[Rfam]
RNA sequence: GAUGGAAGCUGCAGGCACCUUCUGUGUGGACAAAUGAAAUGCUUUUUGUCUACGUAUGCAGCCUUCCUAUAAAAAAGUAGAGGUCUCUGUCUGGUUUAGGACAGCUGGCUAAGCUUGAUCGUUCCCCUCCAUACAAG
Numbered sequence: 001g002a003u004g005g006a007a008g009c010u011g012c013a014g015g016c017a018c019c020u021u022c023u024g025u026g027u028g029g030a031c032a033a034a035u036g037a038a039a040u041g042c043u044u045u046u047u048g049u050c051u052a053c054g055u056a057u058g059c060a061g062c063c064u065u066c067c068u069a070u071a072a073a074a075a076a077g078u079a080g081a082g083g084u085c086u087c088u089g090u091c092u093g094g095u096u097u098a099g100g101a102c103a104g105c106u107g108g109c110u111a112a113g114c115u116u117g118a119u120c121g122u123u124c125c126c127c128u129c130c131a132u133a134c135a136a137g
Stems, first nucleotide, its partner, number of pairs: 004067003008062005025054007036045003080129004087121001089119003093115007
RNA: Small Cajal body specific RNA 3
Organism: Vombatus ursinus